Background
The record is an 86-nucleotide RNA from Sodalis sp. Fse, which matches "RpsF leader" in Rfam. Pairs were carried over by alignment from the consensus structure. About the family: Conserved and widely distributed to many bacterial species RNA structure. It precedes operon containing rpsF, which encodes ribosomal protein S6. The motif also precedes operon containing rpsR, which encodes ribosomal protein S18. The RNA was shown to interact with S6:S18 protein dimer in vitro. It was shown that RpsF leader regulates gene expression in response to the S6:S18 complex, contributing to the regulation of ribosomal protein levels. Its family is annotated with negative regulation of translation and protein binding in the Gene Ontology. The source organism's lineage runs through Bacteria, Pseudomonadati, Pseudomonadota, Bruguierivoracaceae and Sodalis. A reference for the family is Fu et al. (2014), "Bacterial RNA motif in the 5' UTR of rpsF interacts with an S6:S18 complex", RNA. Rfam classes the family as a cis-regulatory leader.
RNA sequence: ACAAAUUAUUAAUCAUAGUUCCUUGCUUCCAUGGGCCAUAGUGGCUAUAAUUAGGAGGCUAAAUAAUCCGUAAGGAGCAUGUUAUG
Numbered sequence: 001a002c003a004a005a006u007u008a009u010u011a012a013u014c015a016u017a018g019u020u021c022c023u024u025g026c027u028u029c030c031a032u033g034g035g036c037c038a039u040a041g042u043g044g045c046u047a048u049a050a051u052u053a054g055g056a057g058g059c060u061a062a063a064u065a066a067u068c069c070g071u072a073a074g075g076a077g078c079a080u081g082u083u084a085u086g
Stems, first nucleotide, its partner, number of pairs: 018078007025059006033048001035046001